[Rfam]
RNA sequence: GGGAGGCGGGACACGGGGCCGGAACACUGCCUGAGAGGUCCGUACACGAUUCUCACAGUGAACCGGUCUCUUUUCCCGACCCCGA
Numbered sequence: 001g002g003g004a005g006g007c008g009g010g011a012c013a014c015g016g017g018g019c020c021g022g023a024a025c026a027c028u029g030c031c032u033g034a035g036a037g038g039u040c041c042g043u044a045c046a047c048g049a050u051u052c053u054c055a056c057a058g059u060g061a062a063c064c065g066g067u068c069u070c071u072u073u074u075c076c077c078g079a080c081c082c083c084g085a
Base pairs, nucleotide, nucleotide: 007078008077009076010075015070016069017068018067019066020065021064025060026059027058028057029056033054034053035052
Overview
The family of this 85-nucleotide RNA from Muraenolepis orangiensis is "mir-128 microRNA precursor family". Its family is annotated with RISC complex and miRNA-mediated post-transcriptional gene silencing in the Gene Ontology. Taxonomically the source falls in Muraenolepis (Eukaryota, Eumetazoa, Craniata, Gnathostomata).